[Rfam]
RNA sequence: CGUUUCCCUGCUGGAGAGAGGCGCCGCGGCCCAGGCCGCGCGUCCACCGAAGGAGCAAGCCCCCAUCGCGGGGUGAAUCUCUCAGGUAAAGCGGACAGCCGGGGUGGA
Numbered sequence: 001c002g003u004u005u006c007c008c009u010g011c012u013g014g015a016g017a018g019a020g021g022c023g024c025c026g027c028g029g030c031c032c033a034g035g036c037c038g039c040g041c042g043u044c045c046a047c048c049g050a051a052g053g054a055g056c057a058a059g060c061c062c063c064c065a066u067c068g069c070g071g072g073g074u075g076a077a078u079c080u081c082u083c084a085g086g087u088a089a090a091g092c093g094g095a096c097a098g099c100c101g102g103g104g105u106g107g108a
Stems, first nucleotide, its partner, number of pairs: 006103003010099004020044004046087003049083002053081003059074004
About this RNA
A member of the RNA family "Glycine riboswitch aptamer" from Pseudacidovorax intermedius, 108 nucleotides long. NCBI's taxonomy places the organism under Bacteria, Pseudomonadota, Burkholderiales, Comamonadaceae, Pseudacidovorax. The match comes from Rfam's covariance-model search (61 bits).